RNA sequence: AAAGGUCACAAGUUCAAGAUCAUAGCAAAAGUGCUCAGGGCAUGGCCUUGUCAGAGUCCAAUGAAUCUGUGAAUUCUGCU
Numbered sequence: 001a002a003a004g005g006u007c008a009c010a011a012g013u014u015c016a017a018g019a020u021c022a023u024a025g026c027a028a029a030a031g032u033g034c035u036c037a038g039g040g041c042a043u044g045g046c047c048u049u050g051u052c053a054g055a056g057u058c059c060a061a062u063g064a065a066u067c068u069g070u071g072a073a074u075u076c077u078g079c080u
Base pairs, nucleotide, nucleotide: 017048018047020045021044024080025079026078027077029075030074031043032042033041052069053068054067055066057064058063